The family of this 76-nucleotide sequence from Bacillus mycoides is "Bacillus-plasmid RNA". The family has 31 seed sequences and 155 matches in Rfam 15.1. NCBI's taxonomy places the organism under Bacteria, Bacillota, Bacilli, Caryophanales, Bacillus. By type it is a small RNA. The sequence is in the family's curated seed alignment.
RNA sequence: UCUGUCAACGGUAAGCGGACAGAAUGAAGCUGUAAGCGAAAUGAAGGAGCAUUAAGGAGUUGACAGACUUACUAUG
Numbered sequence: 001u002c003u004g005u006c007a008a009c010g011g012u013a014a015g016c017g018g019a020c021a022g023a024a025u026g027a028a029g030c031u032g033u034a035a036g037c038g039a040a041a042u043g044a045a046g047g048a049g050c051a052u053u054a055a056g057g058a059g060u061u062g063a064c065a066g067a068c069u070u071a072c073u074a075u076g
Stems, first nucleotide, its partner, number of pairs: 001067009
Dot-bracket structure: (((((((((.................................................))))))))).........